This 165-nucleotide RNA sequence from Erysipelotrichaceae bacterium MTC7 belongs to the Rfam family "Lysine riboswitch aptamer".

RNA sequence: AUAGAUGAUAGAGGUGCGAUUUGUUAUUAUGGUAUGUAUAGAAGGCAUUCGUUUGACACUUACCAGAGGAAUGAUCGCCGAAUAGAACUGUUGGCAGACAGAUUCUAUGGGCUUUAGGAGAAUAUCUUAAGGACUGUCUACGCAAGUAGUUGUGCUAUCUUAAUG
Dot-bracket structure: ......(((((....((((((.(((.....(.((.((....................)).)))......)))))))))...(((((((((((....))))).))))))((.((((((((.....)))))))).))..((((....)))).....)))))......

The match comes from Rfam's covariance-model search (62 bits).